RNA sequence: UUUAAUGAUGAUGUAAUUUGCGCCAGAGAUCUUGCAGAUGGACAAAUGCCUGUUGUCCUCAGCAUCUGCUUGACCACUGUCGAUAAAUAUGUCCUGAAAA
Numbered sequence: 001u002u003u004a005a006u007g008a009u010g011a012u013g014u015a016a017u018u019u020g021c022g023c024c025a026g027a028g029a030u031c032u033u034g035c036a037g038a039u040g041g042a043c044a045a046a047u048g049c050c051u052g053u054u055g056u057c058c059u060c061a062g063c064a065u066c067u068g069c070u071u072g073a074c075c076a077c078u079g080u081c082g083a084u085a086a087a088u089a090u091g092u093c094c095u096g097a098a099a100a
Stems, first nucleotide, its partner, number of pairs: 001100003021082002024079001030072001039064002041057005
RNA: Small nucleolar RNA SNORD16